[Rfam]
RNA sequence: CCUGUGUGAAAGACAUGGGUAGUGAGAUGCUUAUAAUGACAUCAUCUUACUACCUUGUCUUUCCAGCAGUG
Dot-bracket structure: .......((((((((.(((.(((((((((.............))))))))).)))))))))))........
Notes:
Shown here is a 71-nucleotide RNA sequence from Owenia fusiformis, a member of the family "mir-71 microRNA precursor family". Taxonomically the source falls in Owenia (Eukaryota, Metazoa, Eumetazoa, Spiralia). A search with the family's covariance model found it, with a score of 71 bits. The base pairs follow the family's consensus structure, which was predicted with RNAalifold. Rfam 15.1 lists 372 matches to the family in 291 species.